Rfam assigns this 102-nucleotide sequence from Brevibacillus centrosporus to the family "Guanidine-I riboswitch aptamer". NCBI's taxonomy places the organism under Bacteria, Bacillati, Bacillota, Bacilli, Brevibacillus. Pairs were carried over by alignment from the consensus structure. A search with the family's covariance model found it, with a score of 87 bits.
RNA sequence: CCCAGAGUUUUCUAGGGUUCCGCGGAUAGCAAAAGUCCGGCCUGGACCGAGAGAAAACCCACGGCGUGGCCGUGUACACGGAGGGAUAAAAGCCCGGGAGAA
Numbered sequence: 001c002c003c004a005g006a007g008u009u010u011u012c013u014a015g016g017g018u019u020c021c022g023c024g025g026a027u028a029g030c031a032a033a034a035g036u037c038c039g040g041c042c043u044g045g046a047c048c049g050a051g052a053g054a055a056a057a058c059c060c061a062c063g064g065c066g067u068g069g070c071c072g073u074g075u076a077c078a079c080g081g082a083g084g085g086a087u088a089a090a091a092g093c094c095c096g097g098g099a100g101a102a
Base pairs, nucleotide, nucleotide: 007058008057009056010055011054012053015048016047020045021044022042023039024038025037026036027035060074061073062072063071064070065069077097079100083095084094085093
Dot-bracket structure: ......((((((..((...((((((((.......)))))..).)).))....)))))).((((((...))))))..(.[...(((.......))).)..]..